[Rfam]
RNA sequence: GAGCUAUGAUGAUUUCAGCGCUCAAUGAUGGAAGGGGUCCAUCAAGUUCGUCAGAAUUUCAGAUGAAAUCAAGCGCAGCUGAGCUC
Numbered sequence: 001g002a003g004c005u006a007u008g009a010u011g012a013u014u015u016c017a018g019c020g021c022u023c024a025a026u027g028a029u030g031g032a033a034g035g036g037g038u039c040c041a042u043c044a045a046g047u048u049c050g051u052c053a054g055a056a057u058u059u060c061a062g063a064u065g066a067a068a069u070c071a072a073g074c075g076c077a078g079c080u081g082a083g084c085u086c
Base pairs, nucleotide, nucleotide: 001086002085003084004083
This 86-nucleotide RNA sequence from Manihot esculenta belongs to the Rfam family "small nucleolar RNA snoR114". By type it is a C/D-box small nucleolar RNA. Lineage of the source: Eukaryota > Streptophyta > Gunneridae > Manihoteae > Manihot. The family has 24 seed sequences and 1,645 matches in Rfam 15.1. On this family, see Chen and Wu, Nucleic Acids Res 2009: "Mining small RNA sequencing data: a new approach to identify small nucleolar RNAs in Arabidopsis".